Small nucleolar RNA Z206: a 117-nucleotide RNA from Leersia perrieri.
By type it is a C/D-box small nucleolar RNA.
[Rfam]
RNA sequence: CAAGCCAGAUGAGGUCGAGGUGAGCGUGACCGUUCGCCGUUUGACAGCGACAUUGGGCGGCUCCAGCGAAGCGGUGCAAGAGGAGAUCGAUGGGGUGAUGUGGUUUCGAUCGGCGGC
Numbered sequence: 001c002a003a004g005c006c007a008g009a010u011g012a013g014g015u016c017g018a019g020g021u022g023a024g025c026g027u028g029a030c031c032g033u034u035c036g037c038c039g040u041u042u043g044a045c046a047g048c049g050a051c052a053u054u055g056g057g058c059g060g061c062u063c064c065a066g067c068g069a070a071g072c073g074g075u076g077c078a079a080g081a082g083g084a085g086a087u088c089g090a091u092g093g094g095g096u097g098a099u100g101u102g103g104u105u106u107c108g109a110u111c112g113g114c115g116g117c
Stems, first nucleotide, its partner, number of pairs: 004114003008110001